[Rfam]
Shown here is an 87-nucleotide sequence from Triticum turgidum, a member of the family "MIR1120/MIR1122 microRNA precursor family". Gene Ontology terms of the family: miRNA-mediated post-transcriptional gene silencing and RISC complex. NCBI's taxonomy places the organism under Eukaryota, Embryophyta, Liliopsida, Triticodae, Triticum turgidum.
RNA sequence: AUACUCCCUCCGUCCCAUAAUGUAAGACGUUUUUUCACACAAGUGUAGUGUGAAAAAACAUCUUACAUUAUGGGAUGGAGGGAGUAG
Numbered sequence: 001a002u003a004c005u006c007c008c009u010c011c012g013u014c015c016c017a018u019a020a021u022g023u024a025a026g027a028c029g030u031u032u033u034u035u036c037a038c039a040c041a042a043g044u045g046u047a048g049u050g051u052g053a054a055a056a057a058a059c060a061u062c063u064u065a066c067a068u069u070a071u072g073g074g075a076u077g078g079a080g081g082g083a084g085u086a087g
Base pairs, nucleotide, nucleotide: 003085004084005083007081008080009079010078011077013075014074015073016072017071019069020068021067022066023065024064025063026062027061029059030058031057032056033055034054035053036052037051038050039049040048